[Rfam]
RNA sequence: UCAUAGAACCAGGGGUGCUGGAAUUGGCCGGCUGAGAGUGUAUCCCACAAGAUACUGACCCUUACACCUGAUCUGGAUAAUGCCAGCGUAGGAAUAUUAUUAGUUUUGGUC
Numbered sequence: 001u002c003a004u005a006g007a008a009c010c011a012g013g014g015g016u017g018c019u020g021g022a023a024u025u026g027g028c029c030g031g032c033u034g035a036g037a038g039u040g041u042a043u044c045c046c047a048c049a050a051g052a053u054a055c056u057g058a059c060c061c062u063u064a065c066a067c068c069u070g071a072u073c074u075g076g077a078u079a080a081u082g083c084c085a086g087c088g089u090a091g092g093a094a095u096a097u098u099a100u101u102a103g104u105u106u107u108g109g110u111c
Stems, first nucleotide, its partner, number of pairs: 007098002011062004017032005040055004067092004073086004
Rfam assigns this 111-nucleotide sequence from Paenibacillus albidus to the family "TPP riboswitch aptamer (THI element)". Pairs were carried over by alignment from the consensus structure, which is taken from published work. A search with the family's covariance model found it, with a score of 62 bits.